[Rfam]
The family of this 93-nucleotide sequence is "DUF1874 RNA".
RNA sequence: GUAAGCCUCGCCGUGCGGGCUGGCCAUAUAGGGUAAGAGUGCCCAUAGGGCACCGCCAGUCCAUUCCCGAGAGGGAAAGGCGAGGCAGGAGGA
Numbered sequence: 001g002u003a004a005g006c007c008u009c010g011c012c013g014u015g016c017g018g019g020c021u022g023g024c025c026a027u028a029u030a031g032g033g034u035a036a037g038a039g040u041g042c043c044c045a046u047a048g049g050g051c052a053c054c055g056c057c058a059g060u061c062c063a064u065u066c067c068c069g070a071g072a073g074g075g076a077a078a079g080g081c082g083a084g085g086c087a088g089g090a091g092g093a
Stems, first nucleotide, its partner, number of pairs: 005086008017062008037054001039053005064077005